[Rfam]
RNA sequence: UCUCAAGCUGUGACCCUCUAGAGGGAGGCGCAUUCUGUAUUCUGAAAAAAAAGAAAUCGCAGCCCUCUAGAGUGUUACCGUUUGAGA
Numbered sequence: 001u002c003u004c005a006a007g008c009u010g011u012g013a014c015c016c017u018c019u020a021g022a023g024g025g026a027g028g029c030g031c032a033u034u035c036u037g038u039a040u041u042c043u044g045a046a047a048a049a050a051a052a053g054a055a056a057u058c059g060c061a062g063c064c065c066u067c068u069a070g071a072g073u074g075u076u077a078c079c080g081u082u083u084g085a086g087a
Stems, first nucleotide, its partner, number of pairs: 001087005007081002010078005016072003020068006028060003033055003038052001